Nucleotides: 076
Base pairs, nucleotide, nucleotide: 001075003073004072005071006070007069009067010066011065012064014062015061017059018058019057022055023054029053030052031051032050035047036046037044
Number, partner (000 for none) and nucleotide at each position: 001075g002000a003073g004072a005071c006070a007069c008000c009067c010066u011065u012064a013000u014062g015061g016000a017059g018058c019057a020000g021000u022055a023054c024000u025000u026000g027000c028000u029053u030052c031051a032050g033000u034000a035047g036046g037044g038000a039000a040000u041000u042000g043000g044037u045000g046036c047035u048000c049000c050032c051031u052030g053029a054023g055022u056000c057019u058018g059017c060000c061015c062014c063000u064012u065011g066010a067009g068000u069007g070006u071005g072004u073003c074000a075001c076000u

The record is a 76-nucleotide sequence from Myotis davidii, which matches "mir-9229 microRNA precursor family" in Rfam.